[Rfam]
RNA sequence: CUCGGUCACGGGUAUUCUUGGGUUAAUAAUAUACUUUUUCUAUAUUAUUGCUUGAGAAUACACGUGACUGAG
Number, nucleotide and partner (000 for none) at each position: 001c072002u071003c070004g069005g068006u000007c000008a065009c064010g063011g000012g061013u060014a059015u058016u057017c056018u055019u054020g053021g052022g051023u050024u000025a049026a048027u047028a046029a045030u044031a043032u000033a000034c000035u000036u000037u000038u000039u000040c000041u000042a000043u031044a030045u029046u028047a027048u026049u025050g023051c022052u021053u020054g019055a018056g017057a016058a015059u014060a013061c012062a000063c010064g009065u008066g000067a000068c005069u004070g003071a002072g001
RNA: mir-137 microRNA precursor family